[Rfam]
RNA sequence: GUAAUACAUAACGGGAGCUCGGCUAACCGGGCUGAGAGGGUGGAUUGGCCACCGACCGUCAACCUGAUCUGGGUAAUGCCAGCGGAGGGAACAGAUUUUGAUCCUUUU
Numbered sequence: 001g002u003a004a005u006a007c008a009u010a011a012c013g014g015g016a017g018c019u020c021g022g023c024u025a026a027c028c029g030g031g032c033u034g035a036g037a038g039g040g041u042g043g044a045u046u047g048g049c050c051a052c053c054g055a056c057c058g059u060c061a062a063c064c065u066g067a068u069c070u071g072g073g074u075a076a077u078g079c080c081a082g083c084g085g086a087g088g089g090a091a092c093a094g095a096u097u098u099u100g101a102u103c104c105u106u107u108u
Base pairs, nucleotide, nucleotide: 006096009093011059012058013057014056017032018031019030020029021028039053040052041051042050043049063088064087065086069082070081071080072079
Rfam assigns this 108-nucleotide sequence from Sulfobacillus thermosulfidooxidans to the family "TPP riboswitch aptamer (THI element)". The base pairs follow the family's consensus structure, which is taken from published work. About the family: Vitamin B(1) in its active form thiamin pyrophosphate (TPP) is an essential coenzyme that is synthesised by coupling of pyrimidine and thiazole moieties in bacteria. NCBI's taxonomy places the organism under Bacteria, Bacillota, Eubacteriales, Sulfobacillus, Sulfobacillus thermosulfidooxidans. The match comes from Rfam's covariance-model search (59 bits).